[Rfam]
RNA sequence: CGGUCGGGAGCCCCCUUUGGGACGGGGGCAGGAAUAGACCGAACAUCUCUGUUUCGUCAGGGCACUUCCACCGGCGCCCACCGGAGGCUGUG
Numbered sequence: 001c002g003g004u005c006g007g008g009a010g011c012c013c014c015c016u017u018u019g020g021g022a023c024g025g026g027g028g029c030a031g032g033a034a035u036a037g038a039c040c041g042a043a044c045a046u047c048u049c050u051g052u053u054u055c056g057u058c059a060g061g062g063c064a065c066u067u068c069c070a071c072c073g074g075c076g077c078c079c080a081c082c083g084g085a086g087g088c089u090g091u092g
Stems, first nucleotide, its partner, number of pairs: 001041005010029006063092003069086001071084003

Notes:
Rhodo-rpoB RNA: a 92-nucleotide sequence from Celeribacter baekdonensis. It is one of the family's seed sequences. Lineage of the source: Bacteria > Pseudomonadati > Rhodobacterales > Roseobacteraceae > Celeribacter baekdonensis.